Rfam assigns this 77-nucleotide sequence from Amycolatopsis suaedae to the family "SAH (S-adenosyl-L-homocysteine) riboswitch aptamer". For this family Rfam cites "Riboswitches that sense S-adenosylhomocysteine and activate genes involved in coenzyme recycling" (Wang et al., Mol Cell, 2008).
RNA sequence: GGGGCCGAGAGGCGCUGCGACGGGCACCGCCCGCCACGCUCGGCCCGGAUCCCGAUCGACAAGGGCGCCUCCUGACC
Number, nucleotide and partner (000 for none) at each position: 001g000002g046003g045004g044005c043006c042007g041008a040009g000010a000011g000012g000013c000014g000015c000016u000017g000018c000019g000020a000021c033022g032023g031024g030025c029026a000027c000028c000029g025030c024031c023032c022033g021034c000035c000036a000037c000038g000039c000040u008041c007042g006043g005044c004045c003046c002047g000048g000049a000050u000051c000052c000053c000054g000055a000056u000057c000058g000059a000060c000061a000062a000063g000064g000065g000066c000067g000068c000069c000070u000071c000072c000073u000074g000075a000076c000077c000